A member of the RNA family "Vault RNA" from Amphiprion percula, 97 nucleotides long.
Rfam 15.1 lists 2,873 matches to the family in 431 species.
Rfam classes the family as a non-coding RNA gene.
NCBI's taxonomy places the organism under Eukaryota, Bilateria, Craniata, Teleostomi, Amphiprion.
A search with the family's covariance model found it, with a score of 59 bits.
For this family Rfam cites "Evolution of Vault RNAs" (Stadler et al., Mol Biol Evol, 2009).
The family's consensus secondary structure is taken from published work.

[Rfam]
RNA sequence: GCAUCGGUUUAGCUCAAUGGUUACUUCUUACCCUGAAGUUUCCACUCUCCGGACCGCGGACCAGGGGGUUCGACCAUGGGCACUGUCCGAUGUUUUC
Numbered sequence: 001g002c003a004u005c006g007g008u009u010u011a012g013c014u015c016a017a018u019g020g021u022u023a024c025u026u027c028u029u030a031c032c033c034u035g036a037a038g039u040u041u042c043c044a045c046u047c048u049c050c051g052g053a054c055c056g057c058g059g060a061c062c063a064g065g066g067g068g069u070u071c072g073a074c075c076a077u078g079g080g081c082a083c084u085g086u087c088c089g090a091u092g093u094u095u096u097c
Stems, first nucleotide, its partner, number of pairs: 002092006012081004017077004026073002